[Rfam]
RNA: msiK RNA
Organism: Corynebacterium gerontici
RNA sequence: CUUCACUCGGAUCGUUUGGCACGUACCUGCCAAUGAAG
Numbered sequence: 001c002u003u004c005a006c007u008c009g010g011a012u013c014g015u016u017u018g019g020c021a022c023g024u025a026c027c028u029g030c031c032a033a034u035g036a037a038g
Stems, first nucleotide, its partner, number of pairs: 001038005016033006